RNA sequence: GCAGGCGAAUGCUCCGCGGCCUUUGCCCGAACGACCCCUGACGCACUUCCCCGGCGCCAGGUGUCCGGUCGGGCAGGGACCACGGCGCACUCGCCCCUCGCC
Numbered sequence: 001g002c003a004g005g006c007g008a009a010u011g012c013u014c015c016g017c018g019g020c021c022u023u024u025g026c027c028c029g030a031a032c033g034a035c036c037c038c039u040g041a042c043g044c045a046c047u048u049c050c051c052c053g054g055c056g057c058c059a060g061g062u063g064u065c066c067g068g069u070c071g072g073g074c075a076g077g078g079a080c081c082a083c084g085g086c087g088c089a090c091u092c093g094c095c096c097c098u099c100g101c102c
Stems, first nucleotide, its partner, number of pairs: 010089003014085003018081002021078010032067001033065003037061004042056003